[Rfam]
RNA sequence: GGAAGUGUAUUCUUUAGUGUGAUGUUACUACUGUAUUGAGAUCACUAGCGUUCGUUAGAAGGUCUACAGCCCGUGACGUCACGCGGUCGUUAACCAGGCAGAGCCUCUUGUAAUGUGCGCUGCGGACGAUCGCCCGCGCGGCUGCGACGGACUUGCGGCGCACGUUCCUUGGGCUGCCAUCCUGAACCUUACGCGGUUUUAGUUAACUCGUUAGCUUAGCUCCGGUUUAUAAAUUGAGCACUUCCAUACCAUGGCGGCGAGAAUACUCGAAUGCCAGUCUUUUG
Dot-bracket structure: ((((((((..........(((((.......(((.(....((((.(((........)))..))))).)))........)))))...........................................................................................................................................................)))))))).......(((.................))).........
RNA: Arthropod 7SK RNA